[Rfam]
RNA sequence: CGGAGUUUAGCGCAGCUUGGUAGCGCGCCUCGCUUGGGACGAGGAGGUCGGGGGUUCAAAUCCCUCAACUCCGA
Numbered sequence: 001c002g003g004a005g006u007u008u009a010g011c012g013c014a015g016c017u018u019g020g021u022a023g024c025g026c027g028c029c030u031c032g033c034u035u036g037g038g039a040c041g042a043g044g045a046g047g048u049c050g051g052g053g054g055u056u057c058a059a060a061u062c063c064c065u066c067a068a069c070u071c072c073g074a
Stems, first nucleotide, its partner, number of pairs: 001073007010026004028044005050066005

Description
Shown here is a 74-nucleotide RNA sequence from Effusibacillus lacus, a member of the family "tRNA". NCBI's taxonomy places the organism under Bacteria, Bacillati, Bacillota, Bacilli, Effusibacillus. The match comes from Rfam's covariance-model search (67 bits). Gene Ontology term of the family: triplet codon-amino acid adaptor activity.